[Rfam]
RNA sequence: ACGACCAACAUGAUGAAAGAUCGAAUUUUAUAUUCAGUUAUCCCUGUCCGAAGUAUUCGUGUGGAUAUUCACUAUUCUGAUUGUCGU
Numbered sequence: 001a002c003g004a005c006c007a008a009c010a011u012g013a014u015g016a017a018a019g020a021u022c023g024a025a026u027u028u029u030a031u032a033u034u035c036a037g038u039u040a041u042c043c044c045u046g047u048c049c050g051a052a053g054u055a056u057u058c059g060u061g062u063g064g065a066u067a068u069u070c071a072c073u074a075u076u077c078u079g080a081u082u083g084u085c086g087u
Base pairs, nucleotide, nucleotide: 001087002086003085004084005083007081
RNA: Small nucleolar RNA R38